[Rfam]
Nucleotides: 087
Stems, first nucleotide, its partner, number of pairs: 001087007009079002
Number, partner (000 for none) and nucleotide at each position: 001087g002086a003085u004084u005083g006082g007081u008000c009079g010078g011000a012000a013000u014000a015000a016000u017000g018000a019000a020000u021000a022000a023000u024000g025000a026000g027000a028000u029000g030000u031000g032000c033000c034000a035000a036000g037000u038000u039000g040000a041000c042000u043000u044000a045000u046000g047000a048000g049000a050000a051000u052000a053000a054000c055000u056000u057000u058000u059000g060000a061000g062000g063000c064000a065000u066000a067000u068000u069000u070000u071000a072000g073000u074000c075000u076000g077000a078010c079009c080000u081007g082006c083005c084004a085003a086002u087001c
The family of this 87-nucleotide RNA sequence from Miscanthus lutarioriparius is "Small nucleolar RNA Z266". It is annotated as a C/D-box small nucleolar RNA. The source organism's lineage runs through Eukaryota, Viridiplantae, Spermatophyta, Saccharinae and Miscanthus. A search with the family's covariance model found it, with a score of 64 bits. Gene Ontology terms of the family: RNA processing and nucleolus. The family has 11 seed sequences and 719 matches in Rfam 15.1.